[Rfam]
A member of the RNA family "Bacterial large subunit ribosomal RNA" from Granulicella sp. WH15, 385 nucleotides of a longer RNA. Gene Ontology terms of the family: structural constituent of ribosome and ribosome.

RNA sequence: GAUAAUGAAGGUGAGAACCCUUCACGCCGAAAGUCUAAGGUUUCCUGAGGAAGGUUAAUCCGCUCAGGGUUAGUCGGUCCCUAAGUCGAGGCCGAAAGGCGUAGACGAUGGAUGUCCGGUUAAUAUUCCGGAACUCCCGAUUUUUCGUUAUCACGAUGGGGUGACGCAUAAGGAUAAGCUGGACCUCCUAUGGCUAUGGGGUUCGAUACGCGUAAGCUGGAUCAGAUAGGCAAAUCCGUCUGGUCUUAACAGUGAGGCGUAAAGCAGUAAGCCGUAUGGCUGAAAGCAGCUGAUUUCAUGGUGCCAAGAAAAACCUCUAAGGAGAGAGAUUGGGAACCGUACCACAAACCGACACAGGUAGACGAGGAGAAUAUCCAAAGGCGCU
Numbered sequence: 001g002a003u004a005a006u007g008a009a010g011g012u013g014a015g016a017a018c019c020c021u022u023c024a025c026g027c028c029g030a031a032a033g034u035c036u037a038a039g040g041u042u043u044c045c046u047g048a049g050g051a052a053g054g055u056u057a058a059u060c061c062g063c064u065c066a067g068g069g070u071u072a073g074u075c076g077g078u079c080c081c082u083a084a085g086u087c088g089a090g091g092c093c094g095a096a097a098g099g100c101g102u103a104g105a106c107g108a109u110g111g112a113u114g115u116c117c118g119g120u121u122a123a124u125a126u127u128c129c130g131g132a133a134c135u136c137c138c139g140a141u142u143u144u145u146c147g148u149u150a151u152c153a154c155g156a157u158g159g160g161g162u163g164a165c166g167c168a169u170a171a172g173g174a175u176a177a178g179c180u181g182g183a184c185c186u187c188c189u190a191u192g193g194c195u196a197u198g199g200g201g202u203u204c205g206a207u208a209c210g211c212g213u214a215a216g217c218u219g220g221a222u223c224a225g226a227u228a229g230g231c232a233a234a235u236c237c238g239u240c241u242g243g244u245c246u247u248a249a250c251a252g253u254g255a256g257g258c259g260u261a262a263a264g265c266a267g268u269a270a271g272c273c274g275u276a277u278g279g280c281u282g283a284a285a286g287c288a289g290c291u292g293a294u295u296u297c298a299u300g301g302u303g304c305c306a307a308g309a310a311a312a313a314c315c316u317c318u319a320a321g322g323a324g325a326g327a328g329a330u331u332g333g334g335a336a337c338c339g340u341a342c343c344a345c346a347a348a349c350c351g352a353c354a355c356a357g358g359u360a361g362a363c364g365a366g367g368a369g370a371a372u373a374u375c376c377a378a379a380g381g382c383g384c385u
Base pairs, nucleotide, nucleotide: 006024007023008022009021010020011019025383026382027381028380033363034362035361036360039343040342044068045067046066047065048064049063053061054060075339076338077337078336080111081110085106086105087104089102091100092099093098115132116131117130118129119128135335136334137333138332139331140330141329142328143327144326145325154321158317159316160315161314162313166304167303168302169301172297173296174295177291178290179289180288181287182203183202184201185200186199187198208260209259210258211257216253217252218251221244222243223242224241225240226239227238229237230236268283270281271280272279273278349358350357366376367375368374